[Rfam]
RNA sequence: AUCGCUUCUCGGCCUUAUGGCUAAGAUCAAAGUUAGUAACUGUUCUUAUCGAAUUAACCUUCGAUAUCUCCCCUAAUAGGGGAGAGUAAGGUUAUUUGAUUUUUGGAGGCUUGAUCGGAACCGGGGCUUGCUCCGACCGAUCGCGGGUCGUCCCGGCGUGGCACCGAAGCUGGGCACGGCUCACACCCC
Numbered sequence: 001a002u003c004g005c006u007u008c009u010c011g012g013c014c015u016u017a018u019g020g021c022u023a024a025g026a027u028c029a030a031a032g033u034u035a036g037u038a039a040c041u042g043u044u045c046u047u048a049u050c051g052a053a054u055u056a057a058c059c060u061u062c063g064a065u066a067u068c069u070c071c072c073c074u075a076a077u078a079g080g081g082g083a084g085a086g087u088a089a090g091g092u093u094a095u096u097u098g099a100u101u102u103u104u105g106g107a108g109g110c111u112u113g114a115u116c117g118g119a120a121c122c123g124g125g126g127c128u129u130g131c132u133c134c135g136a137c138c139g140a141u142c143g144c145g146g147g148u149c150g151u152c153c154c155g156g157c158g159u160g161g162c163a164c165c166g167a168a169g170c171u172g173g174g175c176a177c178g179g180c181u182c183a184c185a186c187c188c189c
Stems, first nucleotide, its partner, number of pairs: 007026003011022004047066006068084007113142006123134004145182006152174006

A member of the RNA family "U2 spliceosomal RNA" from Diploscapter pachys, 189 nucleotides long. About the family: U2 is a small nuclear RNA (snRNA) component of the spliceosome (involved in pre-mRNA splicing). Complementary binding between U2 snRNA (in an area lying towards the 5' end but 3' to hairpin I) and the branchpoint sequence (BPS) of the intron results the bulging out of an unpaired adenosine, on the BPS, which initiates a nucleophilic attack at the intronic 5' splice site, thus starting the first of two transesterification reactions that mediate splicing. A search with the family's covariance model found it, with a score of 136 bits. Rfam links the family to the GO terms mRNA branch site recognition, U2 snRNP and pre-mRNA branch point binding.